A member of the RNA family "Small nucleolar RNA SNORA49" from Anguilla anguilla, 131 nucleotides long. About the family: The snoRNA ACA49 has no identified RNA target. NB genomic sequence 1-nt different from published. A search with the family's covariance model found it, with a score of 51 bits.

RNA sequence: UUUCCCCAUCUAACACCAGUAUCUUCUGCUGCAGUGAAGCACUCUGGCUUAAAGGGGAUAGAGUAUUGGGCUCUCUUCCCUCCUCAGUGGACACCUGUGUUCCACUUGGGGCCUAAAGAGAAGCCAACAGG
Numbered sequence: 001u002u003u004c005c006c007c008a009u010c011u012a013a014c015a016c017c018a019g020u021a022u023c024u025u026c027u028g029c030u031g032c033a034g035u036g037a038a039g040c041a042c043u044c045u046g047g048c049u050u051a052a053a054g055g056g057g058a059u060a061g062a063g064u065a066u067u068g069g070g071c072u073c074u075c076u077u078c079c080c081u082c083c084u085c086a087g088u089g090g091a092c093a094c095c096u097g098u099g100u101u102c103c104a105c106u107u108g109g110g111g112c113c114u115a116a117a118g119a120g121a122a123g124c125c126a127a128c129a130g131g
Stems, first nucleotide, its partner, number of pairs: 003058005009052001016047004023039004069125003074120001082111006088104004
The source organism's lineage runs through Eukaryota, Metazoa, Gnathostomata, Teleostomi and Anguilla. The family's consensus secondary structure was predicted with RNAalifold.